[Rfam]
RNA sequence: AAGAUUACUUCAAAUAGGAGCAAUGAUCGGUCAAAUAUUUAUAAGUGCUUCUCUUUGGGGUAGUUUUA
Numbered sequence: 001a002a003g004a005u006u007a008c009u010u011c012a013a014a015u016a017g018g019a020g021c022a023a024u025g026a027u028c029g030g031u032c033a034a035a036u037a038u039u040u041a042u043a044a045g046u047g048c049u050u051c052u053c054u055u056u057g058g059g060g061u062a063g064u065u066u067u068a
Base pairs, nucleotide, nucleotide: 004064005063006062007061008060009059010058011057014055016052017051018050019049020048021047022046024044026042027041
Notes: This 68-nucleotide sequence from Triplophysa tibetana belongs to the Rfam family "miR-430 microRNA precursor family". The family has 32 seed sequences and 24,817 matches in Rfam 15.1. Lineage of the source: Eukaryota > Metazoa > Euteleostomi > Actinopteri > Triplophysa. Rfam links the family to the GO terms RISC complex and miRNA-mediated post-transcriptional gene silencing.